[Rfam]
RNA: Iron response element II
RNA sequence: UAAUUAUCGGGGACAGUGUUUCCCAUAAUUG
Numbered sequence: 001u002a003a004u005u006a007u008c009g010g011g012g013a014c015a016g017u018g019u020u021u022c023c024c025a026u027a028a029u030u031g
Base pairs, nucleotide, nucleotide: 001031002030003029004028005027006026007025009024010023011022012021013020014018